A member of the RNA family "Bacterial large subunit ribosomal RNA" from Meiothermus ruber, 448 nucleotides of a longer RNA. NCBI's taxonomy places the organism under Bacteria, Deinococci, Thermales, Thermaceae, Meiothermus ruber.

RNA sequence: CUCCUCGAAAUGACUUUAGGGUCAGCCUCGGAUGCUUAUUUGGGCCUGUAAAGCACUGAUAGGGCUAGGGGGCCUACCAGCCUACCAAACCCUUUCAAACUCUGAAGGGUCCGAAAUGGAGUCCGGGAGUGAGGGCACGAGUGCUAACAUCCGUGUCCAAGCGCUGGAACAACAGAGACCGCCGAAUAAGGUCCCCAAGUACAGGUUAAGUGGAUAAAGAUGUGGGGUUGCCCAGACAGCUAGGAGGUUGGCUUAGAAGCAGCCAUCCUUUAAAGAGUGCGUAAUAGCUCACUAGUCGAGUGACCCUGCGCUGAAAAUGAUCGGGGCUCAAACCUGUCACCGAAUUCGCGGACUUAGCCGGGCUUUGCCUGGUUGAGUGGUAGAGGAGCGUUCCCUAUGCCGAUGAAGCCAUACCGUGAGGAGUGGUGGAGGUACGGGAAGUGCGAAU
Numbered sequence: 001c002u003c004c005u006c007g008a009a010a011u012g013a014c015u016u017u018a019g020g021g022u023c024a025g026c027c028u029c030g031g032a033u034g035c036u037u038a039u040u041u042g043g044g045c046c047u048g049u050a051a052a053g054c055a056c057u058g059a060u061a062g063g064g065c066u067a068g069g070g071g072g073c074c075u076a077c078c079a080g081c082c083u084a085c086c087a088a089a090c091c092c093u094u095u096c097a098a099a100c101u102c103u104g105a106a107g108g109g110u111c112c113g114a115a116a117u118g119g120a121g122u123c124c125g126g127g128a129g130u131g132a133g134g135g136c137a138c139g140a141g142u143g144c145u146a147a148c149a150u151c152c153g154u155g156u157c158c159a160a161g162c163g164c165u166g167g168a169a170c171a172a173c174a175g176a177g178a179c180c181g182c183c184g185a186a187u188a189a190g191g192u193c194c195c196c197a198a199g200u201a202c203a204g205g206u207u208a209a210g211u212g213g214a215u216a217a218a219g220a221u222g223u224g225g226g227g228u229u230g231c232c233c234a235g236a237c238a239g240c241u242a243g244g245a246g247g248u249u250g251g252c253u254u255a256g257a258a259g260c261a262g263c264c265a266u267c268c269u270u271u272a273a274a275g276a277g278u279g280c281g282u283a284a285u286a287g288c289u290c291a292c293u294a295g296u297c298g299a300g301u302g303a304c305c306c307u308g309c310g311c312u313g314a315a316a317a318u319g320a321u322c323g324g325g326g327c328u329c330a331a332a333c334c335u336g337u338c339a340c341c342g343a344a345u346u347c348g349c350g351g352a353c354u355u356a357g358c359c360g361g362g363c364u365u366u367g368c369c370u371g372g373u374u375g376a377g378u379g380g381u382a383g384a385g386g387a388g389c390g391u392u393c394c395c396u397a398u399g400c401c402g403a404u405g406a407a408g409c410c411a412u413a414c415c416g417u418g419a420g421g422a423g424u425g426g427u428g429g430a431g432g433u434a435c436g437g438g439a440a441g442u443g444c445g446a447a448u
Stems, first nucleotide, its partner, number of pairs: 001388006011024005026129001027127007036120001039115008051103001052101002057097003061093004068086002070083004133158007141150002164175003179351004184347003190341003199338001201337006218312002222309010239296005245269003250264003270274001275290001279288002352378011389443001391440005399433003408427005414421002